[Rfam]
RNA sequence: GGGAGCGCAGGAUCCUGGGCUGUGUCCCCCGGUGCCCUGGGCUCCGGGGCCUGCGCUGCUGGAAUCGCGCUCCCAGGCUGCAGCUCCA
Numbered sequence: 001g002g003g004a005g006c007g008c009a010g011g012a013u014c015c016u017g018g019g020c021u022g023u024g025u026c027c028c029c030c031g032g033u034g035c036c037c038u039g040g041g042c043u044c045c046g047g048g049g050c051c052u053g054c055g056c057u058g059c060u061g062g063a064a065u066c067g068c069g070c071u072c073c074c075a076g077g078c079u080g081c082a083g084c085u086c087c088a
Stems, first nucleotide, its partner, number of pairs: 001086003007081002010079002014077002017073003021069004025063002029061001030058006039051001041050003
Source information:
Rfam assigns this 88-nucleotide RNA from Canis lupus to the family "mir-8799 microRNA precursor family". The family's consensus secondary structure was predicted with RNAalifold. The organism belongs to Canis lupus, within Eukaryota. The family is grouped with related families in Rfam's "mir-8791 microRNA precursor clan". Rfam 15.1 lists 20,638 matches to the family in 5 species. A search with the family's covariance model found it, with a score of 59 bits.